[Rfam]
RNA: pemK RNA
RNA sequence: ACCAUGAUACUUCCGUCCAGUCACAGCCCCGCAGACGCGGGAACACGCAAUGAGGGCGGCUCCGGGAGAUCCCCGGAGGGGUGAGAAUCCCAUGA
Numbered sequence: 001a002c003c004a005u006g007a008u009a010c011u012u013c014c015g016u017c018c019a020g021u022c023a024c025a026g027c028c029c030c031g032c033a034g035a036c037g038c039g040g041g042a043a044c045a046c047g048c049a050a051u052g053a054g055g056g057c058g059g060c061u062c063c064g065g066g067a068g069a070u071c072c073c074c075g076g077a078g079g080g081g082u083g084a085g086a087a088u089c090c091c092a093u094g095a
Stems, first nucleotide, its partner, number of pairs: 012092001013059006060078003064074003079091003